[Rfam]
RNA sequence: GUCCCGUGCGGGCACUCAUUCUCGUAGUACGCAGGCGCAUCGGCAACGUGGGGUAACUCCCCGCGCGUUAGCUGGUGCGCCGAAAACAAGGUCCCGAACGGGGCCUUUUUUAUUGCCCAGU
Numbered sequence: 001g002u003c004c005c006g007u008g009c010g011g012g013c014a015c016u017c018a019u020u021c022u023c024g025u026a027g028u029a030c031g032c033a034g035g036c037g038c039a040u041c042g043g044c045a046a047c048g049u050g051g052g053g054u055a056a057c058u059c060c061c062c063g064c065g066c067g068u069u070a071g072c073u074g075g076u077g078c079g080c081c082g083a084a085a086a087c088a089a090g091g092u093c094c095c096g097a098a099c100g101g102g103g104c105c106u107u108u109u110u111u112a113u114u115g116c117c118c119a120g121u
Stems, first nucleotide, its partner, number of pairs: 007029001009027001031116003034081010047065007086107001089106007